Source information
The record is a 48-nucleotide RNA sequence, which matches "L31-Actinobacteria ribosomal protein leader" in Rfam. For this family Rfam cites "Discovery of 20 novel ribosomal leader candidates in bacteria and archaea" (Eckert and Weinberg, BMC Microbiol, 2020). It is one of the family's seed sequences.
[Rfam]
RNA sequence: CCGGUCUCCGGUUCACCCGCGCUGCGCUCGCGUGCGGGACCCGGCGCC
Number, nucleotide and partner (000 for none) at each position: 001c000002c000003g048004g047005u000006c046007u000008c044009c043010g042011g041012u000013u000014c000015a000016c038017c037018c036019g035020c034021g033022c032023u000024g031025c000026g000027c000028u000029c000030g000031c024032g022033u021034g020035c019036g018037g017038g016039a000040c000041c011042c010043g009044g008045c000046g006047c004048c003